[Rfam]
RNA sequence: AAAACCGUGGGAAUAUAAUCUUAUUUAUACCUAGAAUAUGGCUGGGCGUUUCUACCUCGUACCGUAAAUGCGAGACAAUAAGGAAAUUCGAUUUUUCA
Numbered sequence: 001a002a003a004a005c006c007g008u009g010g011g012a013a014u015a016u017a018a019u020c021u022u023a024u025u026u027a028u029a030c031c032u033a034g035a036a037u038a039u040g041g042c043u044g045g046g047c048g049u050u051u052c053u054a055c056c057u058c059g060u061a062c063c064g065u066a067a068a069u070g071c072g073a074g075a076c077a078a079u080a081a082g083g084a085a086a087u088u089c090g091a092u093u094u095u096u097c098a
Stems, first nucleotide, its partner, number of pairs: 019083007030046005056074006
Purine riboswitch aptamer: a 98-nucleotide sequence from Lactococcus cremoris. Rfam's curators write: Riboswitches are metabolite binding domains within certain messenger RNAs that serve as precision sensors for their corresponding targets. Allosteric rearrangement of mRNA structure is mediated by ligand binding, and this results in modulation of gene expression. A class of riboswitches that selectively recognises guanine and becomes saturated at concentrations as low as 5 nM. In Bacillus subtilis, this mRNA motif is located on at least five separate transcriptional units that together encode 17 genes that are mostly involved in purine transport and purine nucleotide biosynthesis. It has also been shown that some members of this family are specific for adenine instead. Hence this family are termed purine riboswitches. It is one of the family's seed sequences. On this family, see Batey et al., Nature 2004: "Structure of a natural guanine-responsive riboswitch complexed with the metabolite hypoxanthine". Taxonomically the source falls in Lactococcus cremoris subsp. cremoris (Bacteria, Bacillota, Streptococcaceae, Lactococcus cremoris).